[Rfam]
RNA: Rhodo-rpoB RNA
RNA sequence: GGUUCGGGAGCCUUCCGGUGGGACGGGGGGCAGGUAUGGAACCGCGCCCCUUCAUUCGCCUGCGGCGCGCACCGGGCCCCGACGUUGCGCAC
Numbered sequence: 001g002g003u004u005c006g007g008g009a010g011c012c013u014u015c016c017g018g019u020g021g022g023a024c025g026g027g028g029g030g031c032a033g034g035u036a037u038g039g040a041a042c043c044g045c046g047c048c049c050c051u052u053c054a055u056u057c058g059c060c061u062g063c064g065g066c067g068c069g070c071a072c073c074g075g076g077c078c079c080c081g082a083c084g085u086u087g088c089g090c091a092c
Base pairs, nucleotide, nucleotide: 001043002042003041004040005039010031011030012029013028014027015026016025017024065092067090068089069088070087071086073084074083